[Rfam]
This 87-nucleotide RNA sequence from Eoetvoesiella caeni belongs to the Rfam family "Fluoride riboswitch aptamer (crcB RNA motif)".
Lineage of the source: Bacteria > Pseudomonadota > Betaproteobacteria > Alcaligenaceae > Eoetvoesiella.
Pairs were carried over by alignment from the consensus structure, which is taken from published work.
RNA sequence: UUCGCACAAGGAGAUGGCAUACCUCCACCCCAGAUGCAAGGUCUGGGAAAACUGCACUUCCAAGAUGCUGAUGAUGCCUGCAGAUCC
Numbered sequence: 001u002u003c004g005c006a007c008a009a010g011g012a013g014a015u016g017g018c019a020u021a022c023c024u025c026c027a028c029c030c031c032a033g034a035u036g037c038a039a040g041g042u043c044u045g046g047g048a049a050a051a052c053u054g055c056a057c058u059u060c061c062a063a064g065a066u067g068c069u070g071a072u073g074a075u076g077c078c079u080g081c082a083g084a085u086c087c
Stems, first nucleotide, its partner, number of pairs: 010026004016078005054068003
The match comes from Rfam's covariance-model search (37 bits).